[Rfam]
Small nucleolar RNA SNORA5: a 137-nucleotide RNA from Oncorhynchus tshawytscha. ACA5 is a member of the H/ACA class of snoRNA that guide the sites of modification of uridines to pseudouridines. Rfam links the family to the GO terms nucleolus and RNA processing. It scores 75 bits against the family's covariance model. It is annotated as an H/ACA-box small nucleolar RNA.

RNA sequence: UGCAGCCUUGUCUCAUUCAGUGCUUUCUCUAAAAUGGACCGCACUGGCCAAAAUGGCUGCCACAGUGAACCUUUAGUUCAUGGGCCUCAUGUAACUUUUCCAUGGAUGUUGGGGAUAAAUUUGUACUACUGACAAUU
Numbered sequence: 001u002g003c004a005g006c007c008u009u010g011u012c013u014c015a016u017u018c019a020g021u022g023c024u025u026u027c028u029c030u031a032a033a034a035u036g037g038a039c040c041g042c043a044c045u046g047g048c049c050a051a052a053a054u055g056g057c058u059g060c061c062a063c064a065g066u067g068a069a070c071c072u073u074u075a076g077u078u079c080a081u082g083g084g085c086c087u088c089a090u091g092u093a094a095c096u097u098u099u100c101c102a103u104g105g106a107u108g109u110u111g112g113g114g115a116u117a118a119a120u121u122u123g124u125a126c127u128a129c130u131g132a133c134a135a136u137u
Base pairs, nucleotide, nucleotide: 002060003059004058005057018046019045020044021043022042023041026038027037028036074128075127076126077125078123085114086113087112088111089110